[Rfam]
RNA sequence: GACUAUUUUUUAGCAUAAACCAAACAAAAACAUAGAUAAUGAGGUCUAUAUCAUCCUCGUUCCCAGGGCUUCUCGGCUGCAACGCAGGCAGCCGAGAAGCCCUGGGAACGAGGAU
Numbered sequence: 001g002a003c004u005a006u007u008u009u010u011u012a013g014c015a016u017a018a019a020c021c022a023a024a025c026a027a028a029a030a031c032a033u034a035g036a037u038a039a040u041g042a043g044g045u046c047u048a049u050a051u052c053a054u055c056c057u058c059g060u061u062c063c064c065a066g067g068g069c070u071u072c073u074c075g076g077c078u079g080c081a082a083c084g085c086a087g088g089c090a091g092c093c094g095a096g097a098a099g100c101c102c103u104g105g106g107a108a109c110g111a112g113g114a115u
Base pairs, nucleotide, nucleotide: 006017008015022047024045025044056112057111058110059109060108061107063105064104065103066102067101068100069099070098071097072096074094075093076092077091078090079089080088